[Rfam]
RNA sequence: AUGUUAUCAAGAAAGGCCGAGGGAAUAGACCCUGUGAAGCCUUAGCAACCCUCCCCUGUGGAGAAGGUGCUACAUUCUACCCCGGAAAGGGGAAAGAUAACGC
Numbered sequence: 001a002u003g004u005u006a007u008c009a010a011g012a013a014a015g016g017c018c019g020a021g022g023g024a025a026u027a028g029a030c031c032c033u034g035u036g037a038a039g040c041c042u043u044a045g046c047a048a049c050c051c052u053c054c055c056c057u058g059u060g061g062a063g064a065a066g067g068u069g070c071u072a073c074a075u076u077c078u079a080c081c082c083c084g085g086a087a088a089g090g091g092g093a094a095a096g097a098u099a100a101c102g103c
Base pairs, nucleotide, nucleotide: 002102003101004100005099006098007097008096013043014042015041016040017039021032022031023030026079027078028077029076044071045070046069047068049067050066051063052062053061054060075095080092081091082090083089
RNA: SAM riboswitch aptamer (S box leader)